[Rfam]
RNA sequence: GCAGGUGAAUGCAACGUCAAGCGAUGGGCGUUGCGCUCCAUAUUGUCUUACUUCCUUUUUUGAAUUACUGCAUAGCACAUUUGAUUCGCACAAGCCGGUUAUUACCGGCUUUU
Numbered sequence: 001g002c003a004g005g006u007g008a009a010u011g012c013a014a015c016g017u018c019a020a021g022c023g024a025u026g027g028g029c030g031u032u033g034c035g036c037u038c039c040a041u042a043u044u045g046u047c048u049u050a051c052u053u054c055c056u057u058u059u060u061u062g063a064a065u066u067a068c069u070g071c072a073u074a075g076c077a078c079a080u081u082u083g084a085u086u087c088g089c090a091c092a093a094g095c096c097g098g099u100u101a102u103u104a105c106c107g108g109c110u111u112u113u
Stems, first nucleotide, its partner, number of pairs: 001046004007038002010035009062087006069077003094109006
Fumarate/nitrate reductase regulator sRNA: a 113-nucleotide RNA sequence from Erwinia mallotivora. The literature on the family includes a 2010 paper in Mol Microbiol by Durand and Storz, "Reprogramming of anaerobic metabolism by the FnrS small RNA". Rfam classes the family as a small RNA. The base pairs follow the family's consensus structure, which is taken from published work.